[Rfam]
RNA sequence: AUAAAAAAAUGGCUCUUUUCCAAUACUAUUGAAAAAGAGCCAAAGUCUCUUUGCAUAUGCAAAGAGUACAAAAAGGGAGAGGAGAAACCGGAAGAAGGUCUUAUGGGGAAUGAUAAGACUUCUCCGAAU
Dot-bracket structure: ..........(((((((((.............)))))))))....((((((((......))))))..........))...........((((.((((.(((((..........)))))))))))))...
Notes:
Rfam assigns this 129-nucleotide RNA from Alkalibacillus haloalkaliphilus to the family "ylbH leader". It scores 68 bits against the family's covariance model. The family's RNA type in Rfam is cis-regulatory leader. Lineage of the source: Bacteria > Bacillati > Bacillota > Bacilli > Alkalibacillus. Gene Ontology term of the family: regulation of gene expression. Rfam's curators write: This family is a putative regulatory RNA structure that is found upstream of the ylbH gene in B. subtilis and related low GC Gram-positive bacteria.